[Rfam]
RNA sequence: GAUCCGAUAGUAUGGUCGAAAUAAAUAUCCAUAUAUUUAUUUCGACCAUACUAUCUAUUAGUGUUAUUGUAGUGUAUAAAGUUAUA
Numbered sequence: 001g002a003u004c005c006g007a008u009a010g011u012a013u014g015g016u017c018g019a020a021a022u023a024a025a026u027a028u029c030c031a032u033a034u035a036u037u038u039a040u041u042u043c044g045a046c047c048a049u050a051c052u053a054u055c056u057a058u059u060a061g062u063g064u065u066a067u068u069g070u071a072g073u074g075u076a077u078a079a080a081g082u083u084a085u086a
Base pairs, nucleotide, nucleotide: 006055007054008053009052010051011050012049013048014047015046016045017044018043019042020041021040023028

The record is an 86-nucleotide RNA sequence from Cornus macrophylla, which matches "Plastid-psbM 3UTR RNA" in Rfam. On this family, see Richter et al., Plant Commun 2023: "Retrograde signaling in plants: A critical review focusing on the GUN pathway and beyond". It is one of the family's seed sequences. Rfam describes the family as follows. Plastid psbM is a non-coding RNA (ncRNA) recognised in plastids. It was found in the three prime untranslated region (3UTR) of psbM gene, its 3UTR location suggests a role in transcript maturation.